[Rfam]
RNA: Mason-Pfizer monkey virus packaging signal
RNA sequence: UAAUGCCUCAACAGGGACCUGGAAACGAGGGACUCCAUGAGGAAGAGAGGACGCCAAAGGACAGUCGACCACAACGAAGACAAAAGGAGUCAAACUCUUCCGACACCGCUGGAACUCCUGCACGCCAGAAUCGAAGGUAAGUGAUGCGUCCGAAAUGGGACAAGAAUUAAGCCAACAUCAAAUAUAUGUAGGACAAUUAAAAGAGGCUUUAAAGAUACGAGGAGUAAAGGUUAAAGGUAAUGAUUUGUUUAAAUUUUUUGAUUUUGUAAAAGACACUUGCCCUU
Numbered sequence: 001u002a003a004u005g006c007c008u009c010a011a012c013a014g015g016g017a018c019c020u021g022g023a024a025a026c027g028a029g030g031g032a033c034u035c036c037a038u039g040a041g042g043a044a045g046a047g048a049g050g051a052c053g054c055c056a057a058a059g060g061a062c063a064g065u066c067g068a069c070c071a072c073a074a075c076g077a078a079g080a081c082a083a084a085a086g087g088a089g090u091c092a093a094a095c096u097c098u099u100c101c102g103a104c105a106c107c108g109c110u111g112g113a114a115c116u117c118c119u120g121c122a123c124g125c126c127a128g129a130a131u132c133g134a135a136g137g138u139a140a141g142u143g144a145u146g147c148g149u150c151c152g153a154a155a156u157g158g159g160a161c162a163a164g165a166a167u168u169a170a171g172c173c174a175a176c177a178u179c180a181a182a183u184a185u186a187u188g189u190a191g192g193a194c195a196a197u198u199a200a201a202a203g204a205g206g207c208u209u210u211a212a213a214g215a216u217a218c219g220a221g222g223a224g225u226a227a228a229g230g231u232u233a234a235a236g237g238u239a240a241u242g243a244u245u246u247g248u249u250u251a252a253a254u255u256u257u258u259u260g261a262u263u264u265u266g267u268a269a270a271a272g273a274c275a276c277u278u279g280c281c282c283u284u
Base pairs, nucleotide, nucleotide: 006030007029008028036050038048094138095137096136098134099133104128107124108123110122111121145162146161149159150158151157152156168211169210170209171207172206173205218260219259220258221257222256223255224254225253228246229245230244231243232242233241269284270283272281274279